[Rfam]
This 79-nucleotide sequence from Steinernema carpocapsae belongs to the Rfam family "SmY spliceosomal RNA". The family's RNA type in Rfam is spliceosomal small nuclear RNA. Rfam 15.1 lists 408 matches to the family in 67 species. The literature on the family includes a 2007 paper in RNA by MacMorris et al., "A novel family of C. elegans snRNPs contains proteins associated with trans-splicing". The match comes from Rfam's covariance-model search (56 bits). The source organism's lineage runs through Eukaryota, Ecdysozoa, Chromadorea, Strongyloidoidea and Steinernema.

RNA sequence: GUCCAUAUCAUCAUCAUUCCAGGGCCUUUUUACAAGACCCGAAGUACAAUUUUUGGAGACCCAGUUUAGAACUCGGGUU
Numbered sequence: 001g002u003c004c005a006u007a008u009c010a011u012c013a014u015c016a017u018u019c020c021a022g023g024g025c026c027u028u029u030u031u032a033c034a035a036g037a038c039c040c041g042a043a044g045u046a047c048a049a050u051u052u053u054u055g056g057a058g059a060c061c062c063a064g065u066u067u068a069g070a071a072c073u074c075g076g077g078u079u
Stems, first nucleotide, its partner, number of pairs: 022040003026036003059078004064073001065071002
Dot-bracket structure: .....................(((.(((.....))).)))..................((((.(((...)).).)))).